[Rfam]
RNA sequence: AGCAGAGUAAGCUAAGUGCUAAGCUUUUGGGCUCAUACCCCAAGAAUGGAAGGAUAGAAACCUCCCUCUGCUU
Numbered sequence: 001a002g003c004a005g006a007g008u009a010a011g012c013u014a015a016g017u018g019c020u021a022a023g024c025u026u027u028u029g030g031g032c033u034c035a036u037a038c039c040c041c042a043a044g045a046a047u048g049g050a051a052g053g054a055u056a057g058a059a060a061c062c063u064c065c066c067u068c069u070g071c072u073u
Stems, first nucleotide, its partner, number of pairs: 001072007010025004027043005048065003052062002